[Rfam]
RNA sequence: AAAGCUUCACUGAUUUGAAGGAAAAAUAAAUCUUGCUUGAUGUUGUUAUAUAUAAAUCUAGUGGGGUUUUAUAUGUGAAGCUAAAUCAAUGUUCUCCUCGCUAUCCAGUGUUGUGUUUGUGUUGCAUUUGGACGUUGGAGAACAAUAUUU
Number, nucleotide and partner (000 for none) at each position: 001a000002a000003a082004g081005c080006u000007u000008c077009a076010c075011u000012g000013a072014u000015u000016u000017g000018a000019a000020g000021g000022a070023a069024a000025a067026a000027u000028a000029a000030a000031u000032c065033u064034u063035g062036c061037u060038u000039g058040a000041u000042g057043u056044u055045g000046u000047u000048a000049u000050a000051u000052a000053u000054a000055a044056a043057u042058c039059u000060a037061g036062u035063g034064g033065g032066g000067u025068u000069u023070u022071a000072u013073a000074u000075g010076u009077g008078a000079a000080g005081c004082u003083a000084a000085a000086u000087c000088a000089a000090u000091g143092u142093u141094c140095u139096c138097c137098u000099c134100g133101c000102u000103a000104u132105c131106c130107a129108g128109u000110g000111u000112u000113g122114u121115g120116u000117u000118u000119g000120u115121g114122u113123u000124g000125c000126a000127u000128u108129u107130g106131g105132a104133c100134g099135u000136u000137g097138g096139a095140g094141a093142a092143c091144a000145a000146u000147a000148u000149u000150u000